[Rfam]
RNA: Small nucleolar RNA R12
RNA sequence: UUCUGGUUGAUGAAGAAACGAGGGAUUCCCAUCUAUUUUCCACUAUGUUUUAACAACCAGCUACUUCUGACAGAU
Numbered sequence: 001u002u003c004u005g006g007u008u009g010a011u012g013a014a015g016a017a018a019c020g021a022g023g024g025a026u027u028c029c030c031a032u033c034u035a036u037u038u039u040c041c042a043c044u045a046u047g048u049u050u051u052a053a054c055a056a057c058c059a060g061c062u063a064c065u066u067c068u069g070a071c072a073g074a075u
Stems, first nucleotide, its partner, number of pairs: 002074004